[Rfam]
RNA sequence: AGCUCGACGGGGUCGACUCCGCGGGUGACCACCAGGUAGUCGCGCAUCACGAUCCCGUGGCGGUUCUC
Numbered sequence: 001a002g003c004u005c006g007a008c009g010g011g012g013u014c015g016a017c018u019c020c021g022c023g024g025g026u027g028a029c030c031a032c033c034a035g036g037u038a039g040u041c042g043c044g045c046a047u048c049a050c051g052a053u054c055c056c057g058u059g060g061c062g063g064u065u066c067u068c
Base pairs, nucleotide, nucleotide: 004063005062006061008059009058011030012029013028016026017025018024035056036055038053040052041051042050044048

ASdes TB sRNA: a 68-nucleotide RNA from Rhodococcus sp. ABRD24. It is annotated as a small RNA. On this family, see Arnvig and Young, Mol Microbiol 2009: "Identification of small RNAs in Mycobacterium tuberculosis". A search with the family's covariance model found it, with a score of 86 bits.